Shown here is a 93-nucleotide sequence from Streptomyces alboflavus, a member of the family "sodF sRNA". The pairing is the family consensus, mapped onto this sequence. Rfam classes the family as a small RNA. A reference for the family is Kim et al. (2014), "Inverse regulation of Fe- and Ni-containing SOD genes by a Fur family regulator Nur through small RNA processed from 3'UTR of the sodF mRNA", Nucleic Acids Res. Gene Ontology terms of the family: mRNA binding, negative regulation of translation and regulation of mRNA stability.

[Rfam]
RNA sequence: ACGUCCUGCCUCGUGAUCGUCUUCUCAACCUUCAUGACGGCAGGCGGAUGAACGAAAGGCCCCUCGCGAGGACGUGACUCGCGAGGGGCCUUU
Numbered sequence: 001a002c003g004u005c006c007u008g009c010c011u012c013g014u015g016a017u018c019g020u021c022u023u024c025u026c027a028a029c030c031u032u033c034a035u036g037a038c039g040g041c042a043g044g045c046g047g048a049u050g051a052a053c054g055a056a057a058g059g060c061c062c063c064u065c066g067c068g069a070g071g072a073c074g075u076g077a078c079u080c081g082c083g084a085g086g087g088g089c090c091u092u093u
Base pairs, nucleotide, nucleotide: 002046003045005044006043007042008041009040010039013035014034015033016032019029020028055093056092057091058090059089060088061087062086063085064084065083066082067081068080069079070078

NCBI's taxonomy places the organism under Bacteria, Actinomycetota, Kitasatosporales, Streptomycetaceae, Streptomyces.